RNA sequence: GGUGGCUCAGUGGGUGAGAACAGCUGCUCUGCUUUGCUGCACCUGUGACACUGGGGCAAAGAGAAAGUGGCUAUUUCUAUGCUCAGUGCUCAGAACAGUGACCACUAAGAAUGAUUUGUAGCCUAACAAGC
Numbered sequence: 001g002g003u004g005g006c007u008c009a010g011u012g013g014g015u016g017a018g019a020a021c022a023g024c025u026g027c028u029c030u031g032c033u034u035u036g037c038u039g040c041a042c043c044u045g046u047g048a049c050a051c052u053g054g055g056g057c058a059a060a061g062a063g064a065a066a067g068u069g070g071c072u073a074u075u076u077c078u079a080u081g082c083u084c085a086g087u088g089c090u091c092a093g094a095a096c097a098g099u100g101a102c103c104a105c106u107a108a109g110a111a112u113g114a115u116u117u118g119u120a121g122c123c124u125a126a127c128a129a130g131c
Base pairs, nucleotide, nucleotide: 003058004057006055007054008053009052010051020046021045022044023043069123070122071121078113079112082109083108087104088103090101091100092099
Dot-bracket structure: ..((.(((((.........((((...................))))....))))).))..........(((......((..((...((.(((......))).))...))..)).......)))........